[Rfam]
Notes
This 73-nucleotide RNA sequence from Sediminivirga luteola belongs to the Rfam family "tRNA". A search with the family's covariance model found it, with a score of 73 bits. Pairs were carried over by alignment from the consensus structure, which is taken from published work. Rfam classes the family as a transfer RNA.

RNA sequence: GGGGCUAUAGCUCAGUUGGUAGAGCGCUUCGUUCGCAAUGAAGAGGUCAGGGGUUCGAAUCCCCUUAGCUCCA
Numbered sequence: 001g002g003g004g005c006u007a008u009a010g011c012u013c014a015g016u017u018g019g020u021a022g023a024g025c026g027c028u029u030c031g032u033u034c035g036c037a038a039u040g041a042a043g044a045g046g047u048c049a050g051g052g053g054u055u056c057g058a059a060u061c062c063c064c065u066u067a068g069c070u071c072c073a
Stems, first nucleotide, its partner, number of pairs: 001072007010025004027043005049065005